Background:
Alphaproteobacteria transfer-messenger RNA: a 347-nucleotide RNA sequence from Novosphingobium marinum. Pairs were carried over by alignment from the consensus structure, which is taken from published work.

[Rfam]
RNA sequence: UCACUUCACAUUAAGCCGCGAUAGCCUAUAUAGGUCAGUGCCGGUUUCGACCGGCUAUGGCGAUAAAUUGCGGUGUGCAAUAGGCACAGCGGACCCGGGGGCAGUACCCGGCGGCUCCACCACAAUUCCCGGUUUUCCGGGUCUUCUGACGGGGCCGAACCAGGAUCGACGUGUGUUGAAAAGCACUGUUUUCGCCCGGGCUGAGUAACCCGUUAAAGGCUCAAAACUCACAAGUGCCAACGACAACGAAGCACUUGCUCUCGCUGCGUAAUUCUAGGGCCUAACGGCCUGACCUUACAAAGCAUUGAGCACGGUUCGGACCGAACCGGGUAACAGAAUCGGAAACC
Numbered sequence: 001u002c003a004c005u006u007c008a009c010a011u012u013a014a015g016c017c018g019c020g021a022u023a024g025c026c027u028a029u030a031u032a033g034g035u036c037a038g039u040g041c042c043g044g045u046u047u048c049g050a051c052c053g054g055c056u057a058u059g060g061c062g063a064u065a066a067a068u069u070g071c072g073g074u075g076u077g078c079a080a081u082a083g084g085c086a087c088a089g090c091g092g093a094c095c096c097g098g099g100g101g102c103a104g105u106a107c108c109c110g111g112c113g114g115c116u117c118c119a120c121c122a123c124a125a126u127u128c129c130c131g132g133u134u135u136u137c138c139g140g141g142u143c144u145u146c147u148g149a150c151g152g153g154g155c156c157g158a159a160c161c162a163g164g165a166u167c168g169a170c171g172u173g174u175g176u177u178g179a180a181a182a183g184c185a186c187u188g189u190u191u192u193c194g195c196c197c198g199g200g201c202u203g204a205g206u207a208a209c210c211c212g213u214u215a216a217a218g219g220c221u222c223a224a225a226a227c228u229c230a231c232a233a234g235u236g237c238c239a240a241c242g243a244c245a246a247c248g249a250a251g252c253a254c255u256u257g258c259u260c261u262c263g264c265u266g267c268g269u270a271a272u273u274c275u276a277g278g279g280c281c282u283a284a285c286g287g288c289c290u291g292a293c294c295u296u297a298c299a300a301a302g303c304a305u306u307g308a309g310c311a312c313g314g315u316u317c318g319g320a321c322c323g324a325a326c327c328g329g330g331u332a333a334c335a336g337a338a339u340c341g342g343a344a345a346c347c
Stems, first nucleotide, its partner, number of pairs: 040055005059196005070189007085175003089172003095111005112157007197212004202223003312328004321341001323339001
Annotation:
About the family: Bacterial tmRNA, also known as 10Sa RNA or SsrA, is named for its dual tRNA and mRNA-like properties. Its role is to liberate the mRNA from a stalled ribosome.